[Rfam]
RNA sequence: ACCAUCCUUUUCUUGGUGUUGUGGUACUGUCCAAUGAGCACAUAAUGAGGGCAAUACUGCUAACACCUAAACAACACAUCCAUAUCAACUAGAGCUUUGCUUCACCUUGGUGCAAUUUUUGGAAAA
Numbered sequence: 001a002c003c004a005u006c007c008u009u010u011u012c013u014u015g016g017u018g019u020u021g022u023g024g025u026a027c028u029g030u031c032c033a034a035u036g037a038g039c040a041c042a043u044a045a046u047g048a049g050g051g052c053a054a055u056a057c058u059g060c061u062a063a064c065a066c067c068u069a070a071a072c073a074a075c076a077c078a079u080c081c082a083u084a085u086c087a088a089c090u091a092g093a094g095c096u097u098u099g100c101u102u103c104a105c106c107u108u109g110g111u112g113c114a115a116u117u118u119u120u121g122g123a124a125a126a
Stems, first nucleotide, its partner, number of pairs: 006018001008016002021060004026055001028053005038046001083112005090104001092102004
The family of this 126-nucleotide RNA sequence from Saimiri boliviensis is "U4atac minor spliceosomal RNA". The family has 61 seed sequences and 1,648 matches in Rfam 15.1. The base pairs follow the family's consensus structure, which is taken from published work. The source organism's lineage runs through Eukaryota, Bilateria, Amniota, Platyrrhini and Saimiri boliviensis.